About this RNA: A member of the RNA family "Small nucleolar RNA SNORD17" from Erinaceus europaeus, 236 nucleotides long. The snoRNA HBI-43 belongs to the C/D family of snoRNAs, guiding 2'O-ribose methylation at position U3797 of the 28S rRNA. Pseudouridylation in position U3797 is predicted to be guided by the H/ACA snoRNA ACA48. Pairs were carried over by alignment from the consensus structure, which was predicted with RNAalifold. NCBI's taxonomy places the organism under Eukaryota, Eumetazoa, Bilateria, Boreoeutheria, Erinaceus. For this family Rfam cites "RNomics: an experimental approach that identifies 201 candidates for novel, small, non-messenger RNAs in mouse" (Huttenhofer et al., EMBO J, 2001). Rfam classes the family as a C/D-box small nucleolar RNA.

RNA sequence: GUGAAAUGAUGAUUCAGUUUAUCCAUUCGCUGAGUGCGCAGGCACUGACCUUCUUCCAAGCCUCAGUUCCUGUUCUAGGAACAGGGGUACAUAGCCUCCAAAUGCCCUGCAGUCUACAGUGUUCUACUGUGGACAGUUUGUGUAUUGGGGGACUGUUGGUAAGAAUGGCUGGUGUCAGCAGGGGUGGUGCUCGUUGGGCCCCAUCUCACCGAGAUGAGUGUUGAAAAUCUGAUUAC
Numbered sequence: 001g002u003g004a005a006a007u008g009a010u011g012a013u014u015c016a017g018u019u020u021a022u023c024c025a026u027u028c029g030c031u032g033a034g035u036g037c038g039c040a041g042g043c044a045c046u047g048a049c050c051u052u053c054u055u056c057c058a059a060g061c062c063u064c065a066g067u068u069c070c071u072g073u074u075c076u077a078g079g080a081a082c083a084g085g086g087g088u089a090c091a092u093a094g095c096c097u098c099c100a101a102a103u104g105c106c107c108u109g110c111a112g113u114c115u116a117c118a119g120u121g122u123u124c125u126a127c128u129g130u131g132g133a134c135a136g137u138u139u140g141u142g143u144a145u146u147g148g149g150g151g152a153c154u155g156u157u158g159g160u161a162a163g164a165a166u167g168g169c170u171g172g173u174g175u176c177a178g179c180a181g182g183g184g185u186g187g188u189g190c191u192c193g194u195u196g197g198g199c200c201c202c203a204u205c206u207c208a209c210c211g212a213g214a215u216g217a218g219u220g221u222u223g224a225a226a227a228u229c230u231g232a233u234u235a236c
Base pairs, nucleotide, nucleotide: 010235011234012233013232014231017228018227019226020225024220025219026218027217028216029215030213031212034209035208038179039178041176043174044173045172046171047170049168050167051165052164053163054162055161056159057158059088061087062086063085064084066082067081068080069079070078071077091156092155093154094153096151097150104143105142106140109137110136112134113133114132115131116130117129118128119127120126121125181207182206183205184204185203186202187201190198191197